A member of the RNA family "Bacterial RNase P class A" from Microbacterium sp. ZXX196, 368 nucleotides long. The organism belongs to Microbacterium, within Bacteria.

RNA sequence: UGGGUCGGCCGGACGGCCGCGUCGCGCGCGGAAACGCUGUCGCGCCGAGGAACGUCCGGGCUCCGCAGGGCAGGGUGGUGGGUAACACCCACCCGGAGAGAUCCGCGAGACAGUGCAACAGAAAGUAGACCGCCGGCCCCCGGGCCGGUAAGGGUGAAACGGUGGUGUAAGAGACCACCAGGGGCCGCGGCGACGCGGCCCGCUGGGUAAACCUCGCCCGGAGCAAGACCAACAGGGGAUGUUGACGCGGCCCGCCGAGUCCCCGGGUAGGUUGCUAGAGCGGCGCGGCAACGCGUCGCCGAGAGAGAUGGCCGUCGACGGAGGCAGUGCCUCCCGAACAGAACCCGGCGUACAGGCCGGCCCAUUCG
Numbered sequence: 001u002g003g004g005u006c007g008g009c010c011g012g013a014c015g016g017c018c019g020c021g022u023c024g025c026g027c028g029c030g031g032a033a034a035c036g037c038u039g040u041c042g043c044g045c046c047g048a049g050g051a052a053c054g055u056c057c058g059g060g061c062u063c064c065g066c067a068g069g070g071c072a073g074g075g076u077g078g079u080g081g082g083u084a085a086c087a088c089c090c091a092c093c094c095g096g097a098g099a100g101a102u103c104c105g106c107g108a109g110a111c112a113g114u115g116c117a118a119c120a121g122a123a124a125g126u127a128g129a130c131c132g133c134c135g136g137c138c139c140c141c142g143g144g145c146c147g148g149u150a151a152g153g154g155u156g157a158a159a160c161g162g163u164g165g166u167g168u169a170a171g172a173g174a175c176c177a178c179c180a181g182g183g184g185c186c187g188c189g190g191c192g193a194c195g196c197g198g199c200c201c202g203c204u205g206g207g208u209a210a211a212c213c214u215c216g217c218c219c220g221g222a223g224c225a226a227g228a229c230c231a232a233c234a235g236g237g238g239a240u241g242u243u244g245a246c247g248c249g250g251c252c253c254g255c256c257g258a259g260u261c262c263c264c265g266g267g268u269a270g271g272u273u274g275c276u277a278g279a280g281c282g283g284c285g286c287g288g289c290a291a292c293g294c295g296u297c298g299c300c301g302a303g304a305g306a307g308a309u310g311g312c313c314g315u316c317g318a319c320g321g322a323g324g325c326a327g328u329g330c331c332u333c334c335c336g337a338a339c340a341g342a343a344c345c346c347g348g349c350g351u352a353c354a355g356g357c358c359g360g361c362c363c364a365u366u367c368g
Base pairs, nucleotide, nucleotide: 001364002363003362004361005360006359007358008357009356010355011353012316013315014314015313016312017311018310020047021046023044024043025042026041052351053350054349056348057347058346059345060344061223062222063221064220068253069252070251071250073219074218075217076216077215078092079091080090081089082088093107094105095104096103097102108214109213113212114211115208116207130153131152132149133148134147135146136145137144138143161179162178163177164176165175166174181203182201183200184199185198186197187196188195189194227273228272229271230270235264236263237262238261239260240259247255248254280299281298282297283296284295285294286293287292
A search with the family's covariance model found it, with a score of 265 bits. By type it is a ribozyme.